Nucleotides: 138
Stems, first nucleotide, its partner, number of pairs: 002063007010056002024052001026050001028048005076133006083125004089119007096111006
Number, partner (000 for none) and nucleotide at each position: 001000u002063u003062g004061u005060c006059c007058u008057g009000g010056c011055c012000u013000g014000u015000g016000g017000u018000u019000u020000u021000u022000c023000u024052g025000u026050u027000c028048c029047c030046c031045u032044g033000u034000g035000c036000u037000c038000a039000g040000u041000u042000c043000u044032c045031a046030g047029g048028g049000g050026a051000c052024u053000c054000c055011g056010g057008c058007a059006g060005g061004a062003c063002g064000c065000a066000c067000a068000g069000c070000a071000a072000g073000c074000u075000c076133c077132c078131u079130c080129u081128c082000a083125g084124u085123u086122u087000a088000g089119g090118a091117g092116g093115g094114c095113c096111g097110u098109c099108c100107u101106g102000a103000g104000a105000a106101u107100a108099g109098g110097g111096c112000u113095g114094g115093c116092u117091c118090u119089u120000a121000a122086a123085g124084g125083c126000a127000c128081g129080a130079g131078a132077g133076g134000a135000c136000a137000g138000u

This 138-nucleotide RNA sequence from Bos taurus belongs to the Rfam family "Small Cajal body specific RNA 11". Taxonomically the source falls in Bos (Eukaryota, Gnathostomata, Teleostomi, Bovidae). Its family is annotated with nucleolus, RNA processing and Cajal body in the Gene Ontology.